[Rfam]
RNA sequence: UCAAAAAUCGCGAUUUCUUUGGUUGUACAAAGUGGUAUGCGCAUAUUAAUUGGUUUCACAUACCGCUUUACAGCUAAAGAAAUCGAUAUUUUUGGC
Numbered sequence: 001u002c003a004a005a006a007a008u009c010g011c012g013a014u015u016u017c018u019u020u021g022g023u024u025g026u027a028c029a030a031a032g033u034g035g036u037a038u039g040c041g042c043a044u045a046u047u048a049a050u051u052g053g054u055u056u057c058a059c060a061u062a063c064c065g066c067u068u069u070a071c072a073g074c075u076a077a078a079g080a081a082a083u084c085g086a087u088a089u090u091u092u093u094g095g096c
Base pairs, nucleotide, nucleotide: 001095002094003093004092005091011085012084013083014082016080017079018078019077020076021075022074023073024072025071029069030068031067032066033065034064035063036062037061038060039059041056
mir-244 microRNA precursor family: a 96-nucleotide RNA from Caenorhabditis angaria. It scores 69 bits against the family's covariance model. The literature on the family includes a 2003 paper in Genes Dev by Lim et al., "The microRNAs of Caenorhabditis elegans". Rfam 15.1 lists 9 matches to the family in 9 species. The family's consensus secondary structure was predicted with RNAalifold. NCBI's taxonomy places the organism under Eukaryota, Eumetazoa, Bilateria, Rhabditina, Caenorhabditis.